[Rfam]
RNA sequence: CUUUUGGGAUGCAUUUUGUGCGGUUAUGUCUGCCUCCAAAACCCAUCACUGGGCAAAGUGUGUCUCAAAAU
Numbered sequence: 001c002u003u004u005u006g007g008g009a010u011g012c013a014u015u016u017u018g019u020g021c022g023g024u025u026a027u028g029u030c031u032g033c034c035u036c037c038a039a040a041a042c043c044c045a046u047c048a049c050u051g052g053g054c055a056a057a058g059u060g061u062g063u064c065u066c067a068a069a070a071u
Stems, first nucleotide, its partner, number of pairs: 005067010017055003021051004
RNA: mir-3 microRNA precursor family
Organism: Drosophila virilis